[Rfam]
RNA sequence: AUUCUGUUUCAGGGCGAGGUGAAAUUCCUCACUGGCGGUAAUCGGACAGCCGGCGUUCGCGCCGAGCCAAGCCGAGAGUCCGCGACCCUGCGAAGGCGCGUCCCGCUCGGCCCCGCGUCGAACGAGCACCCGACCAGGCUGACACCGGUGAAACUCCGGGACCAACGGUUAAAGUCCGGAUGGAAGAGGCAGACG
Numbered sequence: 001a002u003u004c005u006g007u008u009u010c011a012g013g014g015c016g017a018g019g020u021g022a023a024a025u026u027c028c029u030c031a032c033u034g035g036c037g038g039u040a041a042u043c044g045g046a047c048a049g050c051c052g053g054c055g056u057u058c059g060c061g062c063c064g065a066g067c068c069a070a071g072c073c074g075a076g077a078g079u080c081c082g083c084g085a086c087c088c089u090g091c092g093a094a095g096g097c098g099c100g101u102c103c104c105g106c107u108c109g110g111c112c113c114c115g116c117g118u119c120g121a122a123c124g125a126g127c128a129c130c131c132g133a134c135c136a137g138g139c140u141g142a143c144a145c146c147g148g149u150g151a152a153a154c155u156c157c158g159g160g161a162c163c164a165a166c167g168g169u170u171a172a173a174g175u176c177c178g179g180a181u182g183g184a185a186g187a188g189g190c191a192g193a194c195g
Stems, first nucleotide, its partner, number of pairs: 003193008017029003031175002033164002035083004087138004143160001145159004166178003
Dot-bracket structure: ..((((((((......(((.......))).[[((((((.........................................))))...((((............................................))))....(.((((.......)))))..)).(((.....]]))).......))))))))..
Notes
FMN riboswitch aptamer (RFN element): a 195-nucleotide RNA from Gordonibacter sp. 28C. Gene Ontology term of the family: FMN binding. Lineage of the source: Bacteria > Actinomycetota > Coriobacteriia > Eggerthellales > Gordonibacter.